[Rfam]
RNA sequence: GAGGCACCCUUAUGGGGCAAGACUUGCUUCAGUGGGGCUUUGGUGGUCACUGAGUUUUCCCUUUGAGUAUGUCCCU
Numbered sequence: 001g002a003g004g005c006a007c008c009c010u011u012a013u014g015g016g017g018c019a020a021g022a023c024u025u026g027c028u029u030c031a032g033u034g035g036g037g038c039u040u041u042g043g044u045g046g047u048c049a050c051u052g053a054g055u056u057u058u059c060c061c062u063u064u065g066a067g068u069a070u071g072u073c074c075c076u
Base pairs, nucleotide, nucleotide: 001075003073004072005071006070009067010066011065012064014062015061016060017059019057021056022055023054029053030052031051032050033049034048035047037044038043
This 76-nucleotide RNA sequence from Pipistrellus kuhlii belongs to the Rfam family "mir-9229 microRNA precursor family".